[Rfam]
RNA sequence: AGGGCGGGCCGGGCCCCUCUGGCGAUCGCUCGAUGCGGUCGCGAUGUCGGACCGCAUCG
Numbered sequence: 001a002g003g004g005c006g007g008g009c010c011g012g013g014c015c016c017c018u019c020u021g022g023c024g025a026u027c028g029c030u031c032g033a034u035g036c037g038g039u040c041g042c043g044a045u046g047u048c049g050g051a052c053c054g055c056a057u058c059g
Base pairs, nucleotide, nucleotide: 006053007052009050010049011048012047022042023041024040025039026038027037028036029035
A member of the RNA family "terC RNA" from Sphingobium subterraneum, 59 nucleotides long.
The family's consensus secondary structure is taken from published work.
Taxonomically the source falls in Sphingobium (Bacteria, Pseudomonadota, Sphingomonadales, Sphingobiaceae).
Rfam 15.1 lists 1,112 matches to the family in 772 species.